small nucleolar RNA snoR134: a 152-nucleotide RNA from Handroanthus impetiginosus. NCBI's taxonomy places the organism under Eukaryota, Viridiplantae, Mesangiospermae, asterids, Handroanthus. The family's RNA type in Rfam is H/ACA-box small nucleolar RNA. Rfam links the family to the GO terms nucleolus and RNA processing. The match comes from Rfam's covariance-model search (103 bits). The family's consensus secondary structure was predicted with RNAalifold.

[Rfam]
RNA sequence: UUGCACGUAGCUACCCCGGGCUUCUCCGAUGAUUCACAGAUGAAGAAAGAAGCCCCAAUGCUUGUGCUAAACAGCGCCGUUUAGUGUUGCAGAUUCGUCGCUCUGUACCUUCAUUCUCACGACUGAUCUGUGUCAAAACAACGGCUAUAUCU
Numbered sequence: 001u002u003g004c005a006c007g008u009a010g011c012u013a014c015c016c017c018g019g020g021c022u023u024c025u026c027c028g029a030u031g032a033u034u035c036a037c038a039g040a041u042g043a044a045g046a047a048a049g050a051a052g053c054c055c056c057a058a059u060g061c062u063u064g065u066g067c068u069a070a071a072c073a074g075c076g077c078c079g080u081u082u083a084g085u086g087u088u089g090c091a092g093a094u095u096c097g098u099c100g101c102u103c104u105g106u107a108c109c110u111u112c113a114u115u116c117u118c119a120c121g122a123c124u125g126a127u128c129u130g131u132g133u134c135a136a137a138a139c140a141a142c143g144g145c146u147a148u149a150u151c152u
Base pairs, nucleotide, nucleotide: 003067004066005065006064007063010061011060018055019054020053021052022051023049025046026045076145077144078143079142080141081140085135086134088132089131090130091129092128093127097123098122099121